[Rfam]
Rfam assigns this 85-nucleotide RNA from Desulfoscipio geothermicus to the family "c-di-GMP-I riboswitch aptamer". Pairs were carried over by alignment from the consensus structure, which is taken from published work.

RNA sequence: CAACAAACCGGGCAAACCGUUCGAAAGAUCGGGACGCAAAGCUAUGGGCCUAAGGUUAUUAAGCUAAGGUCGCCUGGCUGCUGAA
Numbered sequence: 001c002a003a004c005a006a007a008c009c010g011g012g013c014a015a016a017c018c019g020u021u022c023g024a025a026a027g028a029u030c031g032g033g034a035c036g037c038a039a040a041g042c043u044a045u046g047g048g049c050c051u052a053a054g055g056u057u058a059u060u061a062a063g064c065u066a067a068g069g070u071c072g073c074c075u076g077g078c079u080g081c082u083g084a085a
Base pairs, nucleotide, nucleotide: 012037013036017032018031019030021028022027040079041078042077043076046074047073048070049069050068055064056063057062